[Rfam]
RNA sequence: GCAGAUGUCCAUUACGCGAAUGCCUGUGCUUUUCGACGUUUAGUUUAGUCUGCAAGAUAGAAUUGAUGUCUCGAAGACAGGUACAUCAGCUUUUAGAGUUCCUGUUCAAGAUCAGCAAACAAAC
Numbered sequence: 001g002c003a004g005a006u007g008u009c010c011a012u013u014a015c016g017c018g019a020a021u022g023c024c025u026g027u028g029c030u031u032u033u034c035g036a037c038g039u040u041u042a043g044u045u046u047a048g049u050c051u052g053c054a055a056g057a058u059a060g061a062a063u064u065g066a067u068g069u070c071u072c073g074a075a076g077a078c079a080g081g082u083a084c085a086u087c088a089g090c091u092u093u094u095a096g097a098g099u100u101c102c103u104g105u106u107c108a109a110g111a112u113c114a115g116c117a118a119a120c121a122a123a124c
Base pairs, nucleotide, nucleotide: 001053002052003051004050005049006048014039015038016037017035018034019033020032063118064117065116068112069111070110071109073107074106077105078104079103080102081101083099084098
This 124-nucleotide RNA sequence from Caenorhabditis elegans belongs to the Rfam family "Caenorhabditis snoRNA ceN110". The sequence is in the family's curated seed alignment. The literature on the family includes a 2007 paper in BMC Mol Biol by Jia et al., "Systematic identification of non-coding RNA 2,2,7-trimethylguanosine cap structures in Caenorhabditis elegans".